[Rfam]
RNA sequence: GUUGUUAAGGGCAAACCCGUCGAAAGGCGGGGACGCAAAGCCUCCGGUCCGAACGUGCGCUGCACGGGAUAGCGGGGUUACCAGCA
Numbered sequence: 001g002u003u004g005u006u007a008a009g010g011g012c013a014a015a016c017c018c019g020u021c022g023a024a025a026g027g028c029g030g031g032g033a034c035g036c037a038a039a040g041c042c043u044c045c046g047g048u049c050c051g052a053a054c055g056u057g058c059g060c061u062g063c064a065c066g067g068g069a070u071a072g073c074g075g076g077g078u079u080a081c082c083a084g085c086a
Stems, first nucleotide, its partner, number of pairs: 003083002011036002016031006034072001039079004044075003047070003

Source information
A member of the RNA family "c-di-GMP-I-GGC riboswitch aptamer" from Povalibacter uvarum, 86 nucleotides long. The match comes from Rfam's covariance-model search (66 bits). On this family, see Weinberg et al., Proc Natl Acad Sci U S A 2017: "Bioinformatic analysis of riboswitch structures uncovers variant classes with altered ligand specificity". Pairs were carried over by alignment from the consensus structure, which is taken from published work.